A member of the RNA family "tRNA" from Candidatus Methanohalarchaeum thermophilum, 75 nucleotides long.
It is annotated as a transfer RNA.
Taxonomically the source falls in Candidatus Methanohalarchaeum (Archaea, Methanonatronarchaeia, Methanonatronarchaeales, Methanonatronarchaeaceae).
Its family is annotated with triplet codon-amino acid adaptor activity in the Gene Ontology.
[Rfam]
RNA sequence: GCUCCGAUAGUGUAGUCCGGCCAAUCAUCUCGGCCUUUCGAGCCGAGGACCGGGGUUCAAAUCCCCGUCGGAGCA
Numbered sequence: 001g002c003u004c005c006g007a008u009a010g011u012g013u014a015g016u017c018c019g020g021c022c023a024a025u026c027a028u029c030u031c032g033g034c035c036u037u038u039c040g041a042g043c044c045g046a047g048g049a050c051c052g053g054g055g056u057u058c059a060a061a062u063c064c065c066c067g068u069c070g071g072a073g074c075a
Base pairs, nucleotide, nucleotide: 001074002073003072004071005070006069007068010028011027012026030046031045032044033043034042051067052066053065054064055063
Dot-bracket structure: (((((((..(((.............))).(((((.......)))))....(((((.......)))))))))))).